[Rfam]
RNA sequence: GGCGACGGUGAUGAGCCAUACAGACCUGUAAUGAUUUGCGAAUAUGAUCGCAAGUUUUUGAACAUCUAAGGGACUGAGUUGCC
Numbered sequence: 001g002g003c004g005a006c007g008g009u010g011a012u013g014a015g016c017c018a019u020a021c022a023g024a025c026c027u028g029u030a031a032u033g034a035u036u037u038g039c040g041a042a043u044a045u046g047a048u049c050g051c052a053a054g055u056u057u058u059u060g061a062a063c064a065u066c067u068a069a070g071g072g073a074c075u076g077a078g079u080u081g082c083c
Stems, first nucleotide, its partner, number of pairs: 002082005